SAM riboswitch aptamer (S box leader): a 106-nucleotide sequence from Caryophanon tenue. The organism belongs to Caryophanon, within Bacteria.
RNA sequence: CUCUUAUGAAGAGAGGUGGAGGGAAGUGCCCUGCGAAGCCCGGCAACCAUCAUGAUGAUGAAAAGGUGCCAAAUCACACAAAGAUUUAUUCUUUGAAAGAUGAGAG
Numbered sequence: 001c002u003c004u005u006a007u008g009a010a011g012a013g014a015g016g017u018g019g020a021g022g023g024a025a026g027u028g029c030c031c032u033g034c035g036a037a038g039c040c041c042g043g044c045a046a047c048c049a050u051c052a053u054g055a056u057g058a059u060g061a062a063a064a065g066g067u068g069c070c071a072a073a074u075c076a077c078a079c080a081a082a083g084a085u086u087u088a089u090u091c092u093u094u095g096a097a098a099g100a101u102g103a104g105a106g
Base pairs, nucleotide, nucleotide: 001106002105003104004103005102006101007100013041015040016039017038021031022030023029026077027076028075042070043069044068045067047066048065050061051060052059074098079095080094081093082092083091084090